Rfam assigns this 87-nucleotide RNA sequence from Gluconacetobacter takamatsuzukensis to the family "Repression of heat shock gene expression (ROSE) element". A reference for the family is Nocker et al. (2001), "A mRNA-based thermosensor controls expression of rhizobial heat shock genes", Nucleic Acids Res. It scores 56 bits against the family's covariance model. About the family: This family represents a 5' UTR cis-regulatory element found in heat shock mRNAs and is known as the ROSE (repression of heat shock gene expression) element. It is annotated as an RNA thermoregulator. Its family is annotated with response to temperature stimulus and regulation of translation in the Gene Ontology. The family has 13 seed sequences and 381 matches in Rfam 15.1.
RNA sequence: CUGGCCGCCGAGAGGGGCCAGCAUGCAGCCAUACGUUGCAUUGAUCUUGUGCCCAUGUUGCUCAGAAGGAGGAUAUGGCUAUGAGAG
Numbered sequence: 001c002u003g004g005c006c007g008c009c010g011a012g013a014g015g016g017g018c019c020a021g022c023a024u025g026c027a028g029c030c031a032u033a034c035g036u037u038g039c040a041u042u043g044a045u046c047u048u049g050u051g052c053c054c055a056u057g058u059u060g061c062u063c064a065g066a067a068g069g070a071g072g073a074u075a076u077g078g079c080u081a082u083g084a085g086a087g
Base pairs, nucleotide, nucleotide: 001021002020003019004018005017006016008015009014024040025039026038027037028036029035046085047084048083049082050081051080053078054077055076056075057074058073059072061071062070063069